[Rfam]
RNA sequence: CGCGGCGUCAUUGGGGAGUAGCCGCCCAACCGGCAGACGCCGGUGGGGACCACGCCAACAUCCUUGGCCCGCAGGCCAUGGUGUGGUCAGCGCGAGCCUGGCAAGACCUUUGACCAUGCAGCCUCCGCAACGGCCGGGGAGGUGCAUGGUCAUGGGUACUACACCGGCCGG
Number, nucleotide and partner (000 for none) at each position: 001c000002g000003c000004g000005g000006c000007g000008u000009c000010a000011u000012u000013g000014g000015g000016g000017a000018g000019u000020a000021g000022c000023c000024g000025c000026c046027c045028a044029a000030c000031c000032g000033g000034c000035a000036g000037a000038c000039g000040c000041c000042g000043g000044u028045g027046g026047g000048g088049a087050c086051c085052a084053c083054g082055c081056c080057a079058a000059c000060a000061u000062c000063c000064u000065u078066g077067g076068c075069c074070c000071g000072c000073a000074g069075g068076c067077c066078a065079u057080g056081g055082u054083g053084u052085g051086g050087u049088c048089a000090g000091c000092g000093c000094g000095a000096g000097c000098c000099u000100g000101g000102c000103a000104a000105g000106a000107c000108c000109u000110u000111u000112g000113a000114c000115c000116a000117u000118g000119c000120a000121g000122c000123c000124u000125c000126c000127g000128c000129a000130a000131c000132g000133g000134c000135c000136g000137g000138g000139g000140a000141g000142g000143u000144g000145c000146a000147u000148g000149g000150u000151c000152a000153u000154g000155g000156g000157u000158a000159c000160u000161a000162c000163a000164c000165c000166g000167g000168c000169c000170g000171g000

Manganese Mn2+ riboswitch aptamer (yybP-ykoY): a 171-nucleotide RNA sequence from Pseudomonas panipatensis. The family has 29 seed sequences and 1,126 matches in Rfam 15.1. The pairing is the family consensus, mapped onto this sequence. A search with the family's covariance model found it, with a score of 80 bits. About the family: This RNA was originally discovered in E. coli during a large scale screen and was named SraF. The family was later found to exist upstream of related families of protein genes in many bacteria, including the the yybP and ykoK genes in B. subtilis. The specific functions of these proteins are unknown, but this structured RNA element may be involved in their genetic regulation as a riboswitch. Rfam links the family to the GO term manganese ion binding.